[Rfam]
RNA: Small nucleolar RNA SNORD18
RNA sequence: GAGAUAUGAUGAGCACACAAAUUGGUCCGUGUUUCUGAAUUAACCGUGACCGAUAACUUUUGCCAUACUCUGAUCUC
Numbered sequence: 001g002a003g004a005u006a007u008g009a010u011g012a013g014c015a016c017a018c019a020a021a022u023u024g025g026u027c028c029g030u031g032u033u034u035c036u037g038a039a040u041u042a043a044c045c046g047u048g049a050c051c052g053a054u055a056a057c058u059u060u061u062g063c064c065a066u067a068c069u070c071u072g073a074u075c076u077c
Stems, first nucleotide, its partner, number of pairs: 001077004